[Rfam]
RNA sequence: UCCGGUCCUCGGUAGUGGCCUCCGGAACCCUCAGGGUCCGGGGACCUCGAUCGAAGACCGCC
Numbered sequence: 001u002c003c004g005g006u007c008c009u010c011g012g013u014a015g016u017g018g019c020c021u022c023c024g025g026a027a028c029c030c031u032c033a034g035g036g037u038c039c040g041g042g043g044a045c046c047u048c049g050a051u052c053g054a055a056g057a058c059c060g061c062c
Stems, first nucleotide, its partner, number of pairs: 003060005009054005017046002020043007028036003
This 62-nucleotide sequence from Cellulomonas chitinilytica belongs to the Rfam family "Actino-pnp RNA".